[Rfam]
RNA sequence: AAAAAGAAAAACCCUGGAUUUCCGUGUCCAAUGUUUGACUGUUCGUCUUAUAUGAAAUUAUUUUAUAAUUAGUAUUUUUAUUGUUGUUAGAUGAUAAAACAUGAUUAAUACUUUAUGCGUGACUUGUUUUUUUAAUUUUUUUCAUAUUUUUUUCAAAUAAGACGGAUGGUCAAACGUUGGAUACGGAAACCUAAGUUUGUCUUUUUU
Numbered sequence: 001a002a003a004a005a006g007a008a009a010a011a012c013c014c015u016g017g018a019u020u021u022c023c024g025u026g027u028c029c030a031a032u033g034u035u036u037g038a039c040u041g042u043u044c045g046u047c048u049u050a051u052a053u054g055a056a057a058u059u060a061u062u063u064u065a066u067a068a069u070u071a072g073u074a075u076u077u078u079u080a081u082u083g084u085u086g087u088u089a090g091a092u093g094a095u096a097a098a099a100c101a102u103g104a105u106u107a108a109u110a111c112u113u114u115a116u117g118c119g120u121g122a123c124u125u126g127u128u129u130u131u132u133u134a135a136u137u138u139u140u141u142u143c144a145u146a147u148u149u150u151u152u153u154c155a156a157a158u159a160a161g162a163c164g165g166a167u168g169g170u171c172a173a174a175c176g177u178u179g180g181a182u183a184c185g186g187a188a189a190c191c192u193a194a195g196u197u198u199g200u201c202u203u204u205u206u207u
Stems, first nucleotide, its partner, number of pairs: 027181006034174018

Rfam assigns this 207-nucleotide sequence from Oryza nivara to the family "MIR812 microRNA precursor family". The organism belongs to Oryza, within Eukaryota. Rfam 15.1 lists 57,451 matches to the family in 24 species.